U4 spliceosomal RNA: a 133-nucleotide sequence from Absidia glauca. It is annotated as a spliceosomal small nuclear RNA.

RNA sequence: AUUCUUGUGCUCGGGCAUAACCAUGCAAGUGAGGUCUCGACUGAUGCUGGUUUAUUGCUGGUUGAAAACUAUAACCAAUACCCGUCUAUUCAUCCUUAGUGGUGUAUAGCAAUUUUUUGCGGUCCUAGUGGCC
Numbered sequence: 001a002u003u004c005u006u007g008u009g010c011u012c013g014g015g016c017a018u019a020a021c022c023a024u025g026c027a028a029g030u031g032a033g034g035u036c037u038c039g040a041c042u043g044a045u046g047c048u049g050g051u052u053u054a055u056u057g058c059u060g061g062u063u064g065a066a067a068a069c070u071a072u073a074a075c076c077a078a079u080a081c082c083c084g085u086c087u088a089u090u091c092a093u094c095c096u097u098a099g100u101g102g103u104g105u106a107u108a109g110c111a112a113u114u115u116u117u118u119g120c121g122g123u124c125c126u127a128g129u130g131g132c133c
Stems, first nucleotide, its partner, number of pairs: 019052005025047003033042003084110001086109004091104004